[Rfam]
RNA sequence: AUAAUGAUACACCCGUAUGACACGGUUCACCCAUCAGAAUGGGAAUGGUGAAAUUCCAGUGG
Numbered sequence: 001a002u003a004a005u006g007a008u009a010c011a012c013c014c015g016u017a018u019g020a021c022a023c024g025g026u027u028c029a030c031c032c033a034u035c036a037g038a039a040u041g042g043g044a045a046u047g048g049u050g051a052a053a054u055u056c057c058a059g060u061g062g
Base pairs, nucleotide, nucleotide: 012059013025014024015023016022026045027044028043030041046058047057048056

Shown here is a 62-nucleotide RNA, a member of the family "pemK RNA". Rfam's curators put it in the seed alignment. Rfam classes the family as a cis-regulatory element. The base pairs follow the family's consensus structure, which is taken from published work.